[Rfam]
RNA sequence: CGCCCGCAGGGGUUCCUGGCGAUGCGAUUUUUUUGCCCGUUUUGCCCAAAAUCACAUUCCCAGGGAUUUCCAACGGGUG
Numbered sequence: 001c002g003c004c005c006g007c008a009g010g011g012g013u014u015c016c017u018g019g020c021g022a023u024g025c026g027a028u029u030u031u032u033u034u035g036c037c038c039g040u041u042u043u044g045c046c047c048a049a050a051a052u053c054a055c056a057u058u059c060c061c062a063g064g065g066a067u068u069u070c071c072a073a074c075g076g077g078u079g
Base pairs, nucleotide, nucleotide: 001079002078004076005075006074010071011070012067013066014065015064016063017062018061019060021058022057023056024055026053027052028051029050030049